[Rfam]
RNA sequence: AGAAAUGCUAUGACAAGGAGGAGUACAUAAUAUUCUGAUGCCAAGAGAGAAGAUGGACGGUGGGAGUCUUCGUGAUGAAGUUAUGGAAGUAGCCUUUGAGCAGUGGACCGAAAGGACAGUUAUCUGAUCCGAGUAGACUUCAACGCAUUCCCAGCGUUAUAUGGGAGCGAUAUCGGAAGUGCGCUUUAGCAGGAUUCCCGUAUCGGCAGAGAGCAAAGAGGAGACUCUUUGAAUUUAGGUGGUAACACGGAUGCAUUAUUCGCCCUAAGC
Dot-bracket structure: ......((......((((.......((((((.......(((.......((((((...........))))))))).....)))))).......))))...))..((((...............................)))).(((.......))).........................................................(((((((....)))))))....((((........((((.......)))).))))...